[Rfam]
RNA sequence: CGAGAGUGCAUUGUAGUUGCAUUGCACUUGUUAUUUAUUAUGUGCAAUAUUUCUACAAAGCAAAUCUCG
Number, nucleotide and partner (000 for none) at each position: 001c069002g068003a067004g066005a000006g065007u062008g061009c060010a000011u058012u057013g056014u055015a054016g053017u000018u000019g050020c000021a048022u047023u046024g045025c044026a043027c042028u000029u000030g000031u000032u000033a000034u000035u000036u000037a000038u000039u000040a000041u000042g027043u026044g025045c024046a023047a022048u021049a000050u019051u000052u000053c016054u015055a014056c013057a012058a011059a000060g009061c008062a007063a000064a000065u006066c004067u003068c002069g001